[Rfam]
RNA sequence: GGAUGUUCUCAGGGCGGGGCGAAAUUCCCCACCGGCGGUGAUGGCCUUGGCCAAAGCCCGCGAGCGCCCCGGCCCAUGCCGGGGGUCAGCAGACCCGGUGCAAUUCCGGGGCCGACGGUCAUAGUCCGGAUGAGAGAGAACGUGA
Numbered sequence: 001g002g003a004u005g006u007u008c009u010c011a012g013g014g015c016g017g018g019g020c021g022a023a024a025u026u027c028c029c030c031a032c033c034g035g036c037g038g039u040g041a042u043g044g045c046c047u048u049g050g051c052c053a054a055a056g057c058c059c060g061c062g063a064g065c066g067c068c069c070c071g072g073c074c075c076a077u078g079c080c081g082g083g084g085g086u087c088a089g090c091a092g093a094c095c096c097g098g099u100g101c102a103a104u105u106c107c108g109g110g111g112c113c114g115a116c117g118g119u120c121a122u123a124g125u126c127c128g129g130a131u132g133a134g135a136g137a138g139a140a141c142g143u144g145a
Stems, first nucleotide, its partner, number of pairs: 003143008017029003031125002033114002035061004056112002064090002094110005116128003
RNA: FMN riboswitch aptamer (RFN element)
Organism: Pseudoruegeria aquimaris